[Rfam]
RNA sequence: CGUCAUGAGUUCCGGCGCCAAGCCCCGGCUGGCCGGACGGCAACCCUCCAACUGCGGUGGGGUGCCCCGGGUGAAGACAUGGCCGCCCACGGCGCGUGGGAGGCAAGCGCGGACC
Numbered sequence: 001c002g003u004c005a006u007g008a009g010u011u012c013c014g015g016c017g018c019c020a021a022g023c024c025c026c027g028g029c030u031g032g033c034c035g036g037a038c039g040g041c042a043a044c045c046c047u048c049c050a051a052c053u054g055c056g057g058u059g060g061g062g063u064g065c066c067c068c069g070g071g072u073g074a075a076g077a078c079a080u081g082g083c084c085g086c087c088c089a090c091g092g093c094g095c096g097u098g099g100g101a102g103g104c105a106a107g108c109g110c111g112g113a114c115c
Base pairs, nucleotide, nucleotide: 002078003077004076009038011037012036013035014034015033016032021030022029039066040065041064044062045061046060048057049056082104083103084102086100087099088098089097090096091095
The record is a 115-nucleotide RNA sequence from Amycolatopsis acidicola, which matches "SAM (S-adenosyl methionine) riboswitch aptamer" in Rfam. A search with the family's covariance model found it, with a score of 109 bits. Taxonomically the source falls in Amycolatopsis (Bacteria, Actinomycetota, Pseudonocardiales, Pseudonocardiaceae). Rfam links the family to the GO terms S-adenosylmethionine metabolic process and regulation of gene expression.